[Rfam]
RNA sequence: UUGUAUCCACUGGUAGACUUUGAACAAUUUGCUGUUGUUCUUUUGGUUUGCAAUAGGAUGCAAAAGAAAAUACUCCUUGUCCUUUCUGUCUUUGUGGCAGCCCAGAUUGAAUUAGGGGAAUAUACU
Numbered sequence: 001u002u003g004u005a006u007c008c009a010c011u012g013g014u015a016g017a018c019u020u021u022g023a024a025c026a027a028u029u030u031g032c033u034g035u036u037g038u039u040c041u042u043u044u045g046g047u048u049u050g051c052a053a054u055a056g057g058a059u060g061c062a063a064a065a066g067a068a069a070a071u072a073c074u075c076c077u078u079g080u081c082c083u084u085u086c087u088g089u090c091u092u093u094g095u096g097g098c099a100g101c102c103c104a105g106a107u108u109g110a111a112u113u114a115g116g117g118g119a120a121u122a123u124a125c126u
Base pairs, nucleotide, nucleotide: 002062003061004060005059006058007057008056011052012051014050015049016048017047018046019045022040023039024038025037026036027035028034074119075118076117077115078114079113082109085106086100087099088098089097090096
RNA: Small nucleolar RNA SNORA31
Organism: Castor canadensis